Small nucleolar RNA SNORD103/SNORD85: an 81-nucleotide RNA from Callipepla squamata. It is annotated as a C/D-box small nucleolar RNA. The source organism's lineage runs through Eukaryota, Bilateria, Tetrapoda, Amniota and Callipepla. A reference for the family is Huttenhofer et al. (2001), "RNomics: an experimental approach that identifies 201 candidates for novel, small, non-messenger RNAs in mouse", EMBO J. Gene Ontology terms of the family: nucleolus and RNA processing.
[Rfam]
RNA sequence: CCUGGUGAUGAUGACACACUUGCCCUCACUGAGAAUGCUGUUCGAUAAUGAGAGCUUCACAGUGUGCACAGCUGAGCCAGG
Numbered sequence: 001c002c003u004g005g006u007g008a009u010g011a012u013g014a015c016a017c018a019c020u021u022g023c024c025c026u027c028a029c030u031g032a033g034a035a036u037g038c039u040g041u042u043c044g045a046u047a048a049u050g051a052g053a054g055c056u057u058c059a060c061a062g063u064g065u066g067c068a069c070a071g072c073u074g075a076g077c078c079a080g081g
Stems, first nucleotide, its partner, number of pairs: 001081006